[Rfam]
RNA sequence: UCGGGACGAGGCAACCUCCCGUUCAGGCGUUCCCCGCCCAAGCGUUGC
Number, nucleotide and partner (000 for none) at each position: 001u000002c021003g020004g019005g018006a017007c000008g000009a000010g000011g048012c047013a046014a045015c044016c000017u006018c005019c004020c003021g002022u000023u000024c000025a000026g038027g037028c036029g035030u000031u000032c000033c000034c000035c029036g028037c027038c026039c000040a000041a000042g000043c000044g015045u014046u013047g012048c011
chrB-b RNA: a 48-nucleotide sequence from Sphingobium nicotianae.